[Rfam]
Shown here is a 113-nucleotide RNA sequence from Rhodamnia argentea, a member of the family "MIR162_1 microRNA precursor family". Gene Ontology terms of the family: miRNA-mediated post-transcriptional gene silencing and RISC complex. Clan: MIR167 microRNA precursor clan. NCBI's taxonomy places the organism under Eukaryota, Gunneridae, Myrtaceae, Decasperminae, Rhodamnia. Rfam 15.1 lists 270 matches to the family in 158 species.

Nucleotides: 113
Stems, first nucleotide, its partner, number of pairs: 013101003018096003022092004027087007036078003
Number, partner (000 for none) and nucleotide at each position: 001000g002000g003000u004000g005000a006000a007000g008000u009000c010000a011000c012000u013101g014100g015099a016000g017000g018096c019095a020094g021000c022092g023091g024090u025089u026000c027087a028086u029085c030084g031083a032082u033081c034000u035000c036078u037077u038076c039000c040000u041000g042000g043000g044000g045000a046000a047000u048000u049000u050000u051000g052000u053000c054000g055000a056000u057000u058000c059000a060000a061000a062000u063000a064000a065000g066000c067000a068000a069000a070000a071000c072000g073000c074000a075000u076038g077037a078036a079000u080000c081033g082032g083031u084030c085029g086028a087027u088000a089025a090024a091023c092022c093000u094020c095019u096018g097000c098000a099015u100014c101013c102000a103000g104000c105000g106000c107000u108000c109000a110000c111000u112000c113000c